[Rfam]
Shown here is a 597-nucleotide sequence from Pseudazoarcus pumilus, a member of the family "Bacterial RNase P class A". A search with the family's covariance model found it, with a score of 223 bits. Its family is annotated with ribonuclease P activity, dimeric ribonuclease P complex and tRNA processing in the Gene Ontology. Lineage of the source: Bacteria > Pseudomonadati > Betaproteobacteria > Rhodocyclales > Pseudazoarcus.
RNA sequence: GAAGUUCGCCAGGCAGUCGCUGCGCACCUCGCGGUGCGUGGAGGAAAGUCCGGGCCCCGCAGAGCAGGAUGCCGGCUAACGGCCGGGCGCCGUGAGGCGACGGAAAGUGCAACAGAGAGCAGACCGCCGAUGGCCGUCCGGGCUUCGCCGCCGCAAGGCGGCAAAGUCCCCCUCUCGAAGAGGGUGGUGCGAUCGGGCGAAAGUCCGAUGUAUCAGCCGCGGUCACUCCGGGCUUGCCCGGAGUGACCGCGGCAGGCGCGGCGCAAGCUGCGCCUGACGGCACAGGUAAGGGUGAAACGGUGCGAGAUCGCGCGAGUGCGACCGGCCGGCGCAAGCCGGUCGGGAGCGUGAGCGAGAUCUCGGGCGGGGCGAAAGCUCCGUCGUGUAAGAGACCACCGCGGGACUGGCAACAGGACCGGCACGGCAAACCCCAUCCGGGGCAAGGCCAAAUAGGGGAGCGAUGGCGUGGCUCGCGCUGCUCCCGGGUAGGCUGCUUCAGGGUCGCGGCAACGCGGCUCGCAGAGGAAUGAUUGCCCGGGCGUGCCGGCUAUGGUCGGCACGCCUCGACAGAACCCGGCUUAUCGGCGGACUUCCCCA
Number, nucleotide and partner (000 for none) at each position: 001g593002a592003a591004g590005u589006u588007c587008g586009c585010c584011a582012g535013g534014c533015a532016g531017u530018c529019g000020c041021u040022g039023c038024g037025c036026a035027c034028c033029u000030c000031g000032c000033g028034g027035u026036g025037c024038g023039u022040g021041g020042a000043g000044g000045a000046a580047a579048g578049u000050c577051c576052g575053g574054g573055c440056c439057c438058c437059g000060c000061a000062g472063a471064g470065c469066a000067g436068g435069a434070u433071g432072c086073c085074g084075g083076c082077u000078a000079a000080c000081g000082g076083c075084c074085g073086g072087g101088c099089g098090c097091c096092g000093u000094g000095a000096g091097g090098c089099g088100a000101c087102g431103g430104a000105a000106a000107g429108u428109g425110c424111a000112a000113c000114a000115g000116a000117g000118a000119g000120c000121a000122g000123a000124c291125c290126g287127c286128c285129g000130a000131u282132g281133g000134c279135c000136g000137u000138c000139c000140g000141g000142g000143c000144u000145u000146c000147g000148c000149c000150g000151c000152c000153g000154c000155a000156a000157g000158g000159c000160g000161g000162c000163a000164a000165a000166g000167u000168c000169c000170c000171c000172c000173u000174c000175u000176c000177g000178a000179a000180g000181a000182g000183g000184g000185u000186g000187g000188u000189g000190c000191g000192a000193u000194c000195g000196g000197g000198c000199g000200a000201a000202a000203g000204u000205c000206c000207g000208a000209u000210g000211u000212a000213u000214c000215a000216g000217c000218c000219g000220c000221g000222g000223u000224c000225a000226c000227u000228c000229c000230g000231g000232g000233c000234u000235u000236g000237c000238c000239c000240g000241g000242a000243g000244u000245g000246a000247c000248c000249g000250c000251g000252g000253c000254a000255g000256g000257c000258g000259c000260g000261g000262c000263g000264c000265a000266a000267g000268c000269u000270g000271c000272g000273c000274c000275u000276g000277a000278c000279g134280g000281c132282a131283c000284a000285g128286g127287u126288a000289a000290g125291g124292g000293u000294g000295a000296a000297a000298c000299g397300g396301u395302g394303c000304g000305a000306g000307a000308u000309c000310g000311c000312g000313c000314g000315a000316g000317u000318g000319c000320g000321a000322c000323c000324g000325g000326c000327c000328g000329g000330c000331g000332c000333a000334a000335g000336c000337c000338g000339g000340u000341c000342g000343g000344g000345a000346g000347c000348g000349u000350g000351a000352g000353c000354g000355a000356g000357a000358u000359c000360u000361c000362g000363g000364g000365c000366g000367g000368g000369g000370c000371g000372a000373a000374a000375g000376c000377u000378c000379c000380g000381u000382c000383g000384u000385g000386u000387a000388a000389g000390a000391g000392a000393c000394c302395a301396c300397c299398g420399c418400g417401g416402g000403a000404c413405u412406g411407g000408c000409a000410a000411c406412a405413g404414g000415a000416c401417c400418g399419g000420c398421a000422c000423g000424g110425c109426a000427a000428a108429c107430c103431c102432c071433a070434u069435c068436c067437g058438g057439g056440g055441c000442a000443a000444g492445g491446c490447c489448a000449a000450a000451u000452a000453g000454g483455g482456g481457a480458g479459c478460g000461a000462u000463g477464g476465c475466g474467u473468g000469g065470c064471u063472c062473g467474c466475g465476c464477u463478g459479c458480u457481c456482c455483c454484g000485g000486g000487u000488a000489g447490g446491c445492u444493g000494c000495u000496u000497c000498a000499g518500g517501g516502u515503c514504g513505c512506g511507g000508c000509a000510a000511c506512g505513c504514g503515g502516c501517u500518c499519g000520c000521a000522g000523a000524g000525g000526a000527a000528u000529g018530a017531u016532u015533g014534c013535c012536c000537g000538g000539g000540c000541g000542u000543g000544c000545c000546g000547g000548c000549u000550a000551u000552g000553g000554u000555c000556g000557g000558c000559a000560c000561g000562c000563c000564u000565c000566g000567a000568c000569a000570g000571a000572a000573c054574c053575c052576g051577g050578c048579u047580u046581a000582u011583c000584g010585g009586c008587g007588g006589a005590c004591u003592u002593c001594c000595c000596c000597a000